A member of the RNA family "gut-2 RNA", 48 nucleotides long. The family's RNA type in Rfam is small RNA. The sequence is in the family's curated seed alignment.
RNA sequence: UACCAAUGCUCAAUCGGGAGUAUUGAAGAACCAAUCGGGGUUAUACGG
Numbered sequence: 001u002a003c004c005a006a007u008g009c010u011c012a013a014u015c016g017g018g019a020g021u022a023u024u025g026a027a028g029a030a031c032c033a034a035u036c037g038g039g040g041u042u043a044u045a046c047g048g
Stems, first nucleotide, its partner, number of pairs: 004025008029042004